RNA sequence: UAUCGGUUGGGCGACGGCGUCCGCCCGAGAGAACCUUCUCGAACCGCCGGCCGGCUGACGACUCCUGCUCCCUA
Numbered sequence: 001u002a003u004c005g006g007u008u009g010g011g012c013g014a015c016g017g018c019g020u021c022c023g024c025c026c027g028a029g030a031g032a033a034c035c036u037u038c039u040c041g042a043a044c045c046g047c048c049g050g051c052c053g054g055c056u057g058a059c060g061a062c063u064c065c066u067g068c069u070c071c072c073u074a
Base pairs, nucleotide, nucleotide: 010025011024012023013022016065017064019062020061021060046055047054048053
RNA: Fluoride riboswitch aptamer (crcB RNA motif)